[Rfam]
RNA sequence: UCCUGUGCUGGGCUUGUUUUCAGUUGCCUGCGGCUGAUUAGUACAACUCAGGCAGCUAAAGCAAGUCUGGGGCGUAA
Numbered sequence: 001u002c003c004u005g006u007g008c009u010g011g012g013c014u015u016g017u018u019u020u021c022a023g024u025u026g027c028c029u030g031c032g033g034c035u036g037a038u039u040a041g042u043a044c045a046a047c048u049c050a051g052g053c054a055g056c057u058a059a060a061g062c063a064a065g066u067c068u069g070g071g072g073c074g075u076a077a
Stems, first nucleotide, its partner, number of pairs: 004074001006072001008070001010068011022057009032047001